[Rfam]
RNA sequence: CCGACAAAGCGCGGGAGUCCGGGCAUCGCCGGGCUGAGAGGGCGGCUGAGCGUGCCGCCGACCGCCAGGACCUGAUCCGGAUCAUGCCGGCGAAGGGAGCGCGCAUGGACGUUGU
Number, nucleotide and partner (000 for none) at each position: 001c000002c000003g000004a000005c000006a000007a000008a000009g100010c099011g065012c064013g063014g062015g000016a000017g034018u033019c032020c031021g030022g000023g000024c000025a000026u000027c000028g000029c000030c021031g020032g019033g018034c017035u000036g000037a000038g000039a000040g000041g059042g058043c057044g056045g055046c000047u000048g000049a000050g000051c000052g000053u000054g000055c045056c044057g043058c042059c041060g000061a000062c014063c013064g012065c011066c000067a000068g000069g000070a000071c096072c095073u094074g000075a000076u000077c090078c089079g088080g087081a000082u000083c000084a000085u000086g000087c080088c079089g078090g077091c000092g000093a000094a073095g072096g071097g000098a000099g010100c009101g000102c000103g000104c000105a000106u000107g000108g000109a000110c000111g000112u000113u000114g000115u000
Shown here is a 115-nucleotide RNA from Actinomadura kijaniata, a member of the family "TPP riboswitch aptamer (THI element)".
The base pairs follow the family's consensus structure, which is taken from published work.